[Rfam]
RNA sequence: CCUGGGGCUCGCGCCCCAGGCUUUAUGCUUUCGCUGCUCCGCAGCU
Numbered sequence: 001c002c003u004g005g006g007g008c009u010c011g012c013g014c015c016c017c018a019g020g021c022u023u024u025a026u027g028c029u030u031u032c033g034c035u036g037c038u039c040c041g042c043a044g045c046u
Stems, first nucleotide, its partner, number of pairs: 001020008033045005
This 46-nucleotide sequence from Roseimaritima ulvae belongs to the Rfam family "Acido-Lenti-1 RNA". By type it is a small RNA.